[Rfam]
Small nucleolar RNA SNORA1: a 134-nucleotide RNA sequence from Sciurus carolinensis. Lineage of the source: Eukaryota > Teleostomi > Eutheria > Boreoeutheria > Sciurus. It scores 71 bits against the family's covariance model. Rfam 15.1 lists 1,282 matches to the family in 515 species. ACA1 is a member of the H/ACA class of snoRNA that guide the sites of modification of uridines to pseudouridines.
RNA sequence: AGUGUCACUAUUACUGAGAAUGGAUGCCACUGACAAUGGCAUCCAGGUAUUGUAAGUGGGCUAAGCUGAGACCUGGGGAACACUUCCAUCACAGCCAGUGUGUGGCAGUGGUGACCACGACACCUGUAAUGUUU
Numbered sequence: 001a002g003u004g005u006c007a008c009u010a011u012u013a014c015u016g017a018g019a020a021u022g023g024a025u026g027c028c029a030c031u032g033a034c035a036a037u038g039g040c041a042u043c044c045a046g047g048u049a050u051u052g053u054a055a056g057u058g059g060g061c062u063a064a065g066c067u068g069a070g071a072c073c074u075g076g077g078g079a080a081c082a083c084u085u086c087c088a089u090c091a092c093a094g095c096c097a098g099u100g101u102g103u104g105g106c107a108g109u110g111g112u113g114a115c116c117a118c119g120a121c122a123c124c125u126g127u128a129a130u131g132u133u134u
Stems, first nucleotide, its partner, number of pairs: 002061002006058003021045007074126004087113006